[Rfam]
RNA sequence: GAUGCGGGCCGGGCCCCUCUGACGCGCUGGACUUCCCCCUUGUCCAGCCGUGAUGUCGGACCGCAUCG
Numbered sequence: 001g002a003u004g005c006g007g008g009c010c011g012g013g014c015c016c017c018u019c020u021g022a023c024g025c026g027c028u029g030g031a032c033u034u035c036c037c038c039c040u041u042g043u044c045c046a047g048c049c050g051u052g053a054u055g056u057c058g059g060a061c062c063g064c065a066u067c068g
Stems, first nucleotide, its partner, number of pairs: 006062002009059004022051003027047006
A member of the RNA family "terC RNA" from Sphingobium indicum, 68 nucleotides long. Rfam 15.1 lists 1,112 matches to the family in 772 species. Lineage of the source: Bacteria > Sphingomonadales > Sphingobiaceae > Sphingobium > Sphingobium indicum. By type it is a cis-regulatory element. The match comes from Rfam's covariance-model search (53 bits).